[Rfam]
RNA sequence: CCUCCGGUUCUUUUCAGAACCACACAUACUCACAAAAGGAGAUUUU
Numbered sequence: 001c002c003u004c005c006g007g008u009u010c011u012u013u014u015c016a017g018a019a020c021c022a023c024a025c026a027u028a029c030u031c032a033c034a035a036a037a038g039g040a041g042a043u044u045u046u
Stems, first nucleotide, its partner, number of pairs: 006021006
The record is a 46-nucleotide RNA sequence from Patiria miniata, which matches "Histone 3' UTR stem-loop" in Rfam. The source organism's lineage runs through Eukaryota, Eumetazoa, Valvatacea, Valvatida and Patiria. By type it is a cis-regulatory element. Rfam 15.1 lists 44,596 matches to the family in 976 species. It scores 38 bits against the family's covariance model. Rfam links the family to the GO term mRNA 3'-end processing by stem-loop binding and cleavage.